permuted transfer-messenger RNA: a 303-nucleotide RNA sequence. The match comes from Rfam's covariance-model search (108 bits). Its family is annotated with RNA catabolic process in the Gene Ontology. The literature on the family includes a 1996 paper in RNA by Williams and Bartel, "Phylogenetic analysis of tmRNA secondary structure". Rfam classes the family as a non-coding RNA gene.
RNA sequence: GCACGUAAUUCCUCAGACUUGAGGACACUUCUGGACUCGGGGGCGGUACCCGACGGCUCCACCAAAAGCUCACCACGGAAUGCCCGAAUACGCCCGAAAGGCUUAGGCAUGGCCGAAGUAAGGAAGAGGCAGGACUCACCGAGACCCCUGCGUUCCCGUGGUGAGCUUUUGAUGGGGCCGAAAUAGGAUCGACAGGGUGGAUAGACGAAGAGGCGUGCCGACAGAUGUCCCACCGUUAUCGGGCAUGAACCAACAAGUGCAAACGAAAACUUUGCUCCGAUGGAGAUGCGUCUCGCUGCCUGA
Numbered sequence: 001g002c003a004c005g006u007a008a009u010u011c012c013u014c015a016g017a018c019u020u021g022a023g024g025a026c027a028c029u030u031c032u033g034g035a036c037u038c039g040g041g042g043g044c045g046g047u048a049c050c051c052g053a054c055g056g057c058u059c060c061a062c063c064a065a066a067a068g069c070u071c072a073c074c075a076c077g078g079a080a081u082g083c084c085c086g087a088a089u090a091c092g093c094c095c096g097a098a099a100g101g102c103u104u105a106g107g108c109a110u111g112g113c114c115g116a117a118g119u120a121a122g123g124a125a126g127a128g129g130c131a132g133g134a135c136u137c138a139c140c141g142a143g144a145c146c147c148c149u150g151c152g153u154u155c156c157c158g159u160g161g162u163g164a165g166c167u168u169u170u171g172a173u174g175g176g177g178c179c180g181a182a183a184u185a186g187g188a189u190c191g192a193c194a195g196g197g198u199g200g201a202u203a204g205a206c207g208a209a210g211a212g213g214c215g216u217g218c219c220g221a222c223a224g225a226u227g228u229c230c231c232a233c234c235g236u237u238a239u240c241g242g243g244c245a246u247g248a249a250c251c252a253a254c255a256a257g258u259g260c261a262a263a264c265g266a267a268a269a270c271u272u273u274g275c276u277c278c279g280a281u282g283g284a285g286a287u288g289c290g291u292c293u294c295g296c297u298g299c300c301u302g303a
Stems, first nucleotide, its partner, number of pairs: 001218005016206001026199003031195003037053005054180007219235002